[Rfam]
RNA sequence: UCACUUCACAUUAAGCUGAAGCUGCCUAUAUAGGCGCUGCCGGCUUUGGCCGGAUAUGGCGAUAAAUUGUGAUGUGUAAUAGACGCAGCGGACCCGGGGGCAGUACCCGGCGGCUCCACCAUAAACCCCGGUAAAACGGGGCAGAUGACGGGGCCGAACUAGGAUCGACGUGUGUUCAAAGACAUUGUUUUUGCCCGGGUUGAGAAUCCCCGUAAAAAGCUCACAACACAUAAGUGCAAACGAUAACGAAGCACUCGCAAUCGCUGCGUAAUCUGACGGCCUCACGGCCUGAUCUUACAAAGCCUUAGCGCGGUUGGACCGACCGGGCAACAGAACGGAUACCG
Numbered sequence: 001u002c003a004c005u006u007c008a009c010a011u012u013a014a015g016c017u018g019a020a021g022c023u024g025c026c027u028a029u030a031u032a033g034g035c036g037c038u039g040c041c042g043g044c045u046u047u048g049g050c051c052g053g054a055u056a057u058g059g060c061g062a063u064a065a066a067u068u069g070u071g072a073u074g075u076g077u078a079a080u081a082g083a084c085g086c087a088g089c090g091g092a093c094c095c096g097g098g099g100g101c102a103g104u105a106c107c108c109g110g111c112g113g114c115u116c117c118a119c120c121a122u123a124a125a126c127c128c129c130g131g132u133a134a135a136a137c138g139g140g141g142c143a144g145a146u147g148a149c150g151g152g153g154c155c156g157a158a159c160u161a162g163g164a165u166c167g168a169c170g171u172g173u174g175u176u177c178a179a180a181g182a183c184a185u186u187g188u189u190u191u192u193g194c195c196c197g198g199g200u201u202g203a204g205a206a207u208c209c210c211c212g213u214a215a216a217a218a219g220c221u222c223a224c225a226a227c228a229c230a231u232a233a234g235u236g237c238a239a240a241c242g243a244u245a246a247c248g249a250a251g252c253a254c255u256c257g258c259a260a261u262c263g264c265u266g267c268g269u270a271a272u273c274u275g276a277c278g279g280c281c282u283c284a285c286g287g288c289c290u291g292a293u294c295u296u297a298c299a300a301a302g303c304c305u306u307a308g309c310g311c312g313g314u315u316g317g318a319c320c321g322a323c324c325g326g327g328c329a330a331c332a333g334a335a336c337g338g339a340u341a342c343c344g
Stems, first nucleotide, its partner, number of pairs: 040053004058195005069188007084174003088171003094110005111156007196212004201223003207219001311325004316342001318340001320338001
Rfam assigns this 344-nucleotide RNA sequence from Allopontixanthobacter confluentis to the family "Alphaproteobacteria transfer-messenger RNA". The organism belongs to Allopontixanthobacter, within Bacteria. The family is grouped with related families in Rfam's "tRNA clan". Rfam classes the family as a non-coding RNA gene. The base pairs follow the family's consensus structure, which is taken from published work. Rfam describes the family as follows. Bacterial tmRNA, also known as 10Sa RNA or SsrA, is named for its dual tRNA and mRNA-like properties. Its role is to liberate the mRNA from a stalled ribosome. To accomplish this part of the tmRNA is used as a reading frame that ends in a translation stop signal. The broken mRNA is replaced in the ribosome by the tmRNA and translation of the tmRNA leads to addition of a proteolysis tag to the incomplete protein enabling recognition by a protease. Recently a number of permuted tmRNA genes have been found encoded in two parts. tmRNAs have been identified in eubacteria and some chloroplasts but are absent from archaeal and eukaryote nuclear genomes.